[Rfam]
Shown here is a 74-nucleotide RNA from Microlunatus sagamiharensis, a member of the family "Fluoride riboswitch aptamer (crcB RNA motif)".
RNA sequence: UUGUCCCCUGGCGAUGGAUUCCGCCGGAGGUCGCGACCUCGAACCGCCGCACGGCUGAUGACUCCUGGACGCUC
Numbered sequence: 001u002u003g004u005c006c007c008c009u010g011g012c013g014a015u016g017g018a019u020u021c022c023g024c025c026g027g028a029g030g031u032c033g034c035g036a037c038c039u040c041g042a043a044c045c046g047c048c049g050c051a052c053g054g055c056u057g058a059u060g061a062c063u064c065c066u067g068g069a070c071g072c073u074c
Stems, first nucleotide, its partner, number of pairs: 010025004016065003020061002046055003
It scores 43 bits against the family's covariance model. The organism belongs to Microlunatus, within Bacteria.